[Rfam]
About this RNA: Fluoride riboswitch aptamer (crcB RNA motif): a 61-nucleotide RNA sequence from Streptomyces sp. TS71-3. Gene Ontology terms of the family: positive regulation of gene expression and response to fluoride.
RNA sequence: CAUGGAGACGGCGAUGAGGCUCGCCACAAUCGCGGACACCGCUGAUGGCCUCUGCUCCAGC
Numbered sequence: 001c002a003u004g005g006a007g008a009c010g011g012c013g014a015u016g017a018g019g020c021u022c023g024c025c026a027c028a029a030u031c032g033c034g035g036a037c038a039c040c041g042c043u044g045a046u047g048g049c050c051u052c053u054g055c056u057c058c059a060g061c
Base pairs, nucleotide, nucleotide: 010025011024012023013022016052017051018050019049020048021047032042033041034040